[Rfam]
RNA sequence: UGUUGUGGUGGUUUCUGUAUUUGGCGGUUCUGUAGCUGUAACAGAGCGGCCCUAAGCCACCACAGAGAUUAGAAAGGAGAAGGCUGUGCUGAGAACUUUUUCAAGCUUUCAGUUUUCAGCUUUUUGUUCAGCUCCUACAGAA
Numbered sequence: 001u002g003u004u005g006u007g008g009u010g011g012u013u014u015c016u017g018u019a020u021u022u023g024g025c026g027g028u029u030c031u032g033u034a035g036c037u038g039u040a041a042c043a044g045a046g047c048g049g050c051c052c053u054a055a056g057c058c059a060c061c062a063c064a065g066a067g068a069u070u071a072g073a074a075a076g077g078a079g080a081a082g083g084c085u086g087u088g089c090u091g092a093g094a095a096c097u098u099u100u101u102c103a104a105g106c107u108u109u110c111a112g113u114u115u116u117c118a119g120c121u122u123u124u125u126g127u128u129c130a131g132c133u134c135c136u137a138c139a140g141a142a
Base pairs, nucleotide, nucleotide: 005063006062007061008060009059010058011057023051024050025049027047028046029045030044031043032042076135077134078133079132102126103125104124105123
Shown here is a 142-nucleotide sequence from Cuculus canorus, a member of the family "Small nucleolar RNA SNORA12". It scores 72 bits against the family's covariance model. Rfam's curators write: U108 belongs to the H/ACA family of snoRNAs. The sequence is predicted to guide the pseudouridylation of the U372 residue in the 28S rRNA subunit. However it has not been reported as a pseudouridylation site. It is annotated as an H/ACA-box small nucleolar RNA. The organism belongs to Cuculus, within Eukaryota. Rfam links the family to the GO terms RNA processing and nucleolus.